[Rfam]
RNA sequence: AGGUAUCUGAGUAUAUGGGGAUGAACGAAAUAGAUUCAAUGUUAGGGUAACGAGAAAAGUAAAAGGGGGAACAUUUCCCCCCUUUUAAGAUAACU
Numbered sequence: 001a002g003g004u005a006u007c008u009g010a011g012u013a014u015a016u017g018g019g020g021a022u023g024a025a026c027g028a029a030a031u032a033g034a035u036u037c038a039a040u041g042u043u044a045g046g047g048u049a050a051c052g053a054g055a056a057a058a059g060u061a062a063a064a065g066g067g068g069g070a071a072c073a074u075u076u077c078c079c080c081c082c083u084u085u086u087a088a089g090a091u092a093a094c095u
Stems, first nucleotide, its partner, number of pairs: 008038001010036003016032002061085003065081007
The family of this 95-nucleotide sequence from Candidatus Erwinia dacicola is "sraA". Rfam classes the family as a small RNA. Taxonomically the source falls in Erwinia (Bacteria, Pseudomonadota, Gammaproteobacteria, Erwiniaceae). The base pairs follow the family's consensus structure, which was predicted with RNAalifold.